[Rfam]
RNA sequence: AAGCAACACUUCUGUAAUUUUUUAUGAUGGAUGAUGUGUUAUACUGCUCAUAAAUUUUUUUUUAUUGCUCUUCAGAUUUGUUGAGGUAACAUUGAAGCUGGUCUAGUAAUAGUACCUU
Numbered sequence: 001a002a003g004c005a006a007c008a009c010u011u012c013u014g015u016a017a018u019u020u021u022u023u024a025u026g027a028u029g030g031a032u033g034a035u036g037u038g039u040u041a042u043a044c045u046g047c048u049c050a051u052a053a054a055u056u057u058u059u060u061u062u063u064a065u066u067g068c069u070c071u072u073c074a075g076a077u078u079u080g081u082u083g084a085g086g087u088a089a090c091a092u093u094g095a096a097g098c099u100g101g102u103c104u105a106g107u108a109a110u111a112g113u114a115c116c117u118u
Base pairs, nucleotide, nucleotide: 002040003039004038005037007036008035009033011031012030013029014028015027017025062112063111064110069109074104075103076102077101078100080098081097082096085090
Dot-bracket structure: .((((.(((.(((((.(.......).))))).).)))))).....................(((....(....(((((.(((..(....).....))).)))))....))))......
A member of the RNA family "Small nucleolar RNA snoR77" from Cannabis sativa, 118 nucleotides long. The source organism's lineage runs through Eukaryota, Spermatophyta, Gunneridae, Pentapetalae and Cannabis. Rfam 15.1 lists 649 matches to the family in 221 species. The literature on the family includes a 2002 paper in Curr Biol by Marker et al., "Experimental RNomics: identification of 140 candidates for small non-messenger RNAs in the plant Arabidopsis thaliana".